Shown here is a 74-nucleotide RNA sequence from Saccharomyces cerevisiae, a member of the family "tRNA". Rfam classes the family as a transfer RNA.
[Rfam]
Nucleotides: 074
Base pairs, nucleotide, nucleotide: 001073002072003071004070005069006068007067010026011025012024013023028044029043030042031041032040051065052064053063054062
Number, partner (000 for none) and nucleotide at each position: 001073g002072c003071u004070u005069g006068u007067a008000u009000a010026g011025u012024u013023u014000a015000a016000u017000u018000g019000g020000u021000u022000a023013a024012a025011a026010c027000a028044u029043u030042u031041g032040u033000c034000u035000c036000a037000u038000a039000a040032a041031u042030a043029a044028a045000u046000a047000a048000u049000g050000u051065a052064a053063g054062g055000u056000u057000c058000a059000a060000u061000u062054c063053c064052u065051u066000c067007u068006a069005c070004a071003a072002g073001u074000a